[Rfam]
RNA sequence: AGGCAGUGAUGAUUAAGAAUGUCAUGCACCACUCUGAUUUUGUGCUGAUAACAUCUCUACCCAUAUUAUAUCUGAGCCU
Number, nucleotide and partner (000 for none) at each position: 001a079002g078003g077004c076005a000006g000007u000008g000009a000010u000011g000012a000013u000014u000015a000016a000017g000018a000019a000020u000021g000022u000023c000024a000025u000026g000027c000028a000029c000030c000031a000032c000033u000034c000035u000036g000037a000038u000039u000040u000041u000042g000043u000044g000045c000046u000047g000048a000049u000050a000051a000052c000053a000054u000055c000056u000057c000058u000059a000060c000061c000062c000063a000064u000065a000066u000067u000068a000069u000070a000071u000072c000073u000074g000075a000076g004077c003078c002079u001